[Rfam]
This 404-nucleotide sequence from Futiania mangrovi belongs to the Rfam family "Bacterial RNase P class A". The family's consensus secondary structure is taken from published work. Taxonomically the source falls in Futiania (Bacteria, Pseudomonadati, Pseudomonadota, Futianiaceae).

Nucleotides: 404
Stems, first nucleotide, its partner, number of pairs: 001400010011389001012340007020046007028038001051387003055384005060224004069273002073220005078092005093107001094105004108215002113213002115209003130155002132151003136147004163181006182204001183202008228297004238288006265279004304323008
Number, partner (000 for none) and nucleotide at each position: 001400u002399c003398a004397g005396a006395c007394g008393g009392c010391u011389g012340g013339a014338c015337g016336g017335c018334c019000g020046c021045u022044c023043c024042c025041g026040u027000c028038c029000g030000g031000c032000u033000u034000g035000c036000c037000g038028g039000c040026g041025c042024g043023g044022g045021g046020g047000a048000g049000g050000a051387a052386a053385g054000u055384c056383c057382g058381g059380g060224c061223u062222c063221c064000a065000c066000g067000g068000a069273a070272a071000c072000a073220c074219g075218g076217u077216g078092c079091c080090g081089g082088g083000u084000a085000a086000c087000g088082c089081c090080c091079g092078g093107c094105g095104g096103g097102g098000g099000c100000g101000a102097c103096c104095c105094c106000a107093g108215g109214g110000a111000a112000a113213g114212u115209g116208c117207c118000a119000c120000a121000g122000a123000a124000a125000g126000c127000a128000a129000a130155c131154c132151g133150c134149c135000c136147g137146g138145c139144g140000u141000u142000c143000g144139c145138g146137c147136c148000a149134g150133g151132c152000a153000a154131g155130g156000g157000u158000g159000a160000a161000a162000g163181g164180g165179u166178g167177c168176g169000g170000u171000a172000a173000g174000a175000g176168c177167g178166c179165a180164c181163c182204g183202c184201g185200c186199c187198c188197c189196c190195g191000g192000u193000a194000a195190c196189g197188g198187g199186g200185g201184c202183g203000g204182c205000a206000c207117g208116g209115c210000a211000a212114a213113c214109c215108c216077c217076a218075c219074c220073g221063g222062g223061a224060g225000c226000a227000a228297g229296a230295c231294c232000a233000a234000a235000u236000a237000g238288g239287g240286g241285c242284g243283g244000c245000g246000c247000g248000c249000g250000g251000g252000u253000u254000u255000c256000g257000g258000u259000c260000c261000g262000c263000a264000g265279g266278u267277u268276c269000c270000g271000u272070u273069u274000c275000c276268g277267a278266a279265c280000c281000a282000g283243c284242c285241g286240u287239c288238c289000g290000g291000g292000u293000c294231g295230g296229u297228c298000g299000c300000g301000c302000g303000a304323g305322g306321c307320c308319g309318g310317g311316a312000g313000c314000g315000a316311u317310c318309c319308c320307g321306g322305u323304c324000c325000c326000a327000g328000a329000g330000g331000a332000a333000u334018g335017g336016c337015c338014g339013u340012c341000c342000a343000g344000c345000g346000c347000c348000u349000u350000g351000c352000u353000g354000c355000c356000u357000u358000c359000g360000g361000g362000u363000g364000g365000c366000g367000g368000g369000c370000g371000u372000g373000g374000a375000c376000a377000g378000a379000a380059c381058c382057c383056g384055g385053c386052u387051u388000a389011c390000a391010g392009g393008c394007c395006g396005u397004c398003u399002g400001a401000u402000c403000c404000c